[Rfam]
RNA sequence: GCCGGGCUGCUGUAAAAAUGCAAACCAAUGCAUUUUCCCCUGGGAAGGGGUUGGCAGCAAGCGGUAUCAUGUCGAAUAGGCAGGGAUACCGCAGAAGUGCCAGCAUAUAGCUGGUAAA
Numbered sequence: 001g002c003c004g005g006g007c008u009g010c011u012g013u014a015a016a017a018a019u020g021c022a023a024a025c026c027a028a029u030g031c032a033u034u035u036u037c038c039c040c041u042g043g044g045a046a047g048g049g050g051u052u053g054g055c056a057g058c059a060a061g062c063g064g065u066a067u068c069a070u071g072u073c074g075a076a077u078a079g080g081c082a083g084g085g086a087u088a089c090c091g092c093a094g095a096a097g098u099g100c101c102a103g104c105a106u107a108u109a110g111c112u113g114g115u116a117a118a
Stems, first nucleotide, its partner, number of pairs: 037050005061092008070082003099115005
RNA: Mahella-1 RNA